[Rfam]
Nucleotides: 135
Base pairs, nucleotide, nucleotide: 002131003130004129005128006127007126013116014115015114016113017112018111019110037104038103039102044060045059046058047057048056051095061082062081063080064079065078066077085101086100087099088098
Number, partner (000 for none) and nucleotide at each position: 001000g002131u003130u004129g005128c006127g007126a008000a009000u010000g011000c012000u013116g014115g015114u016113g017112g018111a019110a020000c021000u022000a023000c024000a025000g026000c027000c028000u029000c030000c031000u032000a033000a034000g035000c036000u037104c038103g039102u040000g041000g042000u043000c044060g045059u046058g047057g048056g049000u050000u051095c052000g053000a054000a055000u056048c057047c058046c059045g060044c061082c062081g063080g064079u065078c066077c067000c068000a069000a070000a071000u072000c073000u074000g075000g076000g077066g078065g079064a080063c081062c082061g083000u084000a085101g086100c087099u088098c089000a090000g091000u092000c093000u094000g095051g096000u097000a098088g099087a100086g101085c102039a103038c104037g105000a106000a107000c108000u109000g110019u111018u112017u113016c114015a115014c116013c117000g118000a119000c120000c121000c122000c123000u124000g125000g126007u127006c128005g129004c130003a131002a132000c133000g134000a135000g
Overview:
This 135-nucleotide sequence from Caenimonas sedimenti belongs to the Rfam family "Y RNA-like". The literature on the family includes a 2018 paper in Structure by Wang et al., "Structural Basis for tRNA Mimicry by a Bacterial Y RNA". By type it is a small RNA. The organism belongs to Caenimonas, within Bacteria. In Deinococcus radiodurans Rsr is tethered via Y RNA to the exoribonuclease PNPase and channels single-stranded RNA into the PNPase cavity. Rsr and Y RNA enhance degradation of structured RNAs by PNPase. This role could be conserved, as Rsr and ncRNAs called YrlA and YrlB (Y RNA like) also associate with PNPase in an evolutionary distant bacterium Salmonella Typhimurium. Rfam 15.1 lists 124 matches to the family in 99 species.